A member of the RNA family "Small nucleolar RNA R12" from Hibiscus syriacus, 76 nucleotides long.
Its family is annotated with nucleolus and RNA processing in the Gene Ontology.
A reference for the family is Chen et al. (2003), "The high diversity of snoRNAs in plants: identification and comparative study of 120 snoRNA genes from Oryza sativa", Nucleic Acids Res.
A search with the family's covariance model found it, with a score of 65 bits.
RNA sequence: AAGAGGAUGAUGAAAACAAUCAGACGGAUUCCCAUUGAUUAUCCCAUGAGAACAUCACCAGCUAUUUCUGACUCUU
Dot-bracket structure: (((((..................................................................)))))
Numbered sequence: 001a002a003g004a005g006g007a008u009g010a011u012g013a014a015a016a017c018a019a020u021c022a023g024a025c026g027g028a029u030u031c032c033c034a035u036u037g038a039u040u041a042u043c044c045c046a047u048g049a050g051a052a053c054a055u056c057a058c059c060a061g062c063u064a065u066u067u068c069u070g071a072c073u074c075u076u
Stems, first nucleotide, its partner, number of pairs: 001076005